[Rfam]
Shown here is a 76-nucleotide RNA from Myotis lucifugus, a member of the family "mir-9223 microRNA precursor family". The base pairs follow the family's consensus structure, which was predicted with RNAalifold. Gene Ontology terms of the family: miRNA-mediated post-transcriptional gene silencing and RISC complex.
RNA sequence: GGAGGUUCUCAGGUGAUGCACCCAGGUAUCGGGCUCCCUCCUCUCUGGUUCCCGGGUGCAUCACCCAAGAACUACU
Numbered sequence: 001g002g003a004g005g006u007u008c009u010c011a012g013g014u015g016a017u018g019c020a021c022c023c024a025g026g027u028a029u030c031g032g033g034c035u036c037c038c039u040c041c042u043c044u045c046u047g048g049u050u051c052c053c054g055g056g057u058g059c060a061u062c063a064c065c066c067a068a069g070a071a072c073u074a075c076u
Base pairs, nucleotide, nucleotide: 002075005072006071007070008069009068012065013064014063015062016061017060019058020057021056022055023054025052026051028049029048030047031046032045033044